Overview: Mason-Pfizer monkey virus packaging signal: a 264-nucleotide sequence from Octodon degus.

RNA sequence: UGGCGCCCAACGUGGGGUGAGAACGGGGGAUUGCGUGAGGGAUGCCGUUCGAGGAGGAGCUGGCACAGAAGUUAGAAUAGAGGAUCCGUCAACACAGGACCCUGCUGCGUUUUCCAGGCCUCGGUAAGUGAACGGCGAUUAUGGGUCAGGAAAUAAGCCAGCAUGAAAUGUUUGUUGAAAGUUUAAGUAAGGCUUUAAAGGCACGAGGAGUAAAGGUUAAAAUUAAGGAUUUGUGUCAAUAUUUUGAAUAUAUUAAACAAGUUU
Number, nucleotide and partner (000 for none) at each position: 001u000002g000003g000004c000005g000006c029007c028008c027009a000010a000011c000012g024013u023014g000015g000016g000017g000018u000019g000020a000021g000022a000023a013024c012025g000026g000027g008028g007029g006030a000031u000032u000033g045034c044035g043036u042037g000038a000039g000040g000041g000042a036043u035044g034045c033046c000047g000048u000049u000050c000051g000052a000053g000054g000055a000056g000057g000058a000059g000060c000061u000062g000063g000064c000065a000066c000067a000068g000069a000070a000071g000072u000073u000074a000075g000076a000077a000078u000079a000080g000081a000082g000083g122084a121085u000086c118087c117088g000089u000090c000091a000092a000093c109094a000095c107096a106097g105098g000099a000100c000101c000102c000103u000104g000105c097106u096107g095108c000109g093110u000111u000112u000113u000114c000115c000116a000117g087118g086119c000120c000121u084122c083123g000124g000125u000126a000127a000128g000129u148130g147131a146132a000133c145134g000135g000136c143137g142138a000139u000140u000141a000142u137143g136144g000145g133146u131147c130148a129149g000150g000151a000152a000153a000154u197155a196156a195157g193158c192159c191160a000161g000162c000163a000164u000165g000166a000167a000168a000169u000170g000171u000172u000173u000174g000175u000176u000177g000178a000179a000180a000181g000182u000183u000184u000185a000186a000187g000188u000189a000190a000191g159192g158193c157194u000195u156196u155197a154198a000199a000200g000201g000202c000203a000204c246205g245206a244207g243208g242209a000210g240211u239212a000213a000214a232215g231216g230217u229218u228219a000220a000221a000222a000223u000224u000225a000226a000227g000228g218229a217230u216231u215232u214233g000234u000235g000236u000237c000238a000239a211240u210241a000242u208243u207244u206245u205246g204247a000248a000249u000250a000251u000252a000253u000254u000255a000256a000257a000258c000259a000260a000261g000262u000263u000264u000
Rfam 15.1 lists 2,921 matches to the family in 53 species. The base pairs follow the family's consensus structure, which was predicted with PFOLD. The family's RNA type in Rfam is cis-regulatory element. This family represents a group of sequences that are related to the Mason-Pfizer monkey virus (MPMV) packaging signal. The packaging signal is located in the 5' UTR and is required for specific RNA encapsidation. The match comes from Rfam's covariance-model search (123 bits).